[Rfam]
RNA sequence: GGUCAUGAGUGCCAGCAUCGAGCCCCGGCUUGCUGGCCGGCAACCCUCCAACCGCGGUGGGGUGCCCCGGGUGAUUGACCGGGUUACUCGAUCGACCCGAUCGAGAACAAGCGCGGGUC
Numbered sequence: 001g002g003u004c005a006u007g008a009g010u011g012c013c014a015g016c017a018u019c020g021a022g023c024c025c026c027g028g029c030u031u032g033c034u035g036g037c038c039g040g041c042a043a044c045c046c047u048c049c050a051a052c053c054g055c056g057g058u059g060g061g062g063u064g065c066c067c068c069g070g071g072u073g074a075u076u077g078a079c080c081g082g083g084u085u086a087c088u089c090g091a092u093c094g095a096c097c098c099g100a101u102c103g104a105g106a107a108c109a110a111g112c113g114c115g116g117g118u119c
Stems, first nucleotide, its partner, number of pairs: 001080004009038001011037006021030002039066003044062003048057002083108003087105007
Background
This 119-nucleotide sequence from Rhodococcoides trifolii belongs to the Rfam family "SAM (S-adenosyl methionine) riboswitch aptamer". The organism belongs to Rhodococcoides, within Bacteria. For this family Rfam cites "The aptamer core of SAM-IV riboswitches mimics the ligand-binding site of SAM-I riboswitches" (Weinberg et al., RNA, 2008). Clan: SAM clan. The match comes from Rfam's covariance-model search (108 bits). From the family's description: SAM-IV is a mRNA element that regulates gene expression via direct sensing of S-adenosylmethionine (SAM or AdoMet). SAM-IV riboswitches share conserved nucleotide positions with the previously described SAM-I riboswitches sequence analysis and molecular recognition experiments suggest that SAM-I and SAM-IV riboswitches share similar ligand binding sites, but have different scaffolds.